The family of this 76-nucleotide RNA sequence from Vagococcus entomophilus is "Fluoride riboswitch aptamer (crcB RNA motif)".
[Rfam]
RNA sequence: GCAUAAAUUGGGAAUGAUGUUCUCCCUUGGUUGAAUAGACCUAAAUCGCAAAAUUGCUAAUGACGUCUGUAACUCU
Numbered sequence: 001g002c003a004u005a006a007a008u009u010g011g012g013a014a015u016g017a018u019g020u021u022c023u024c025c026c027u028u029g030g031u032u033g034a035a036u037a038g039a040c041c042u043a044a045a046u047c048g049c050a051a052a053a054u055u056g057c058u059a060a061u062g063a064c065g066u067c068u069g070u071a072a073c074u075c076u
Base pairs, nucleotide, nucleotide: 010026011025012024013023016067017066018065019064020063021062048057049056050055
It scores 34 bits against the family's covariance model.
Pairs were carried over by alignment from the consensus structure, which is taken from published work.
Taxonomically the source falls in Vagococcus (Bacteria, Bacillota, Lactobacillales, Enterococcaceae).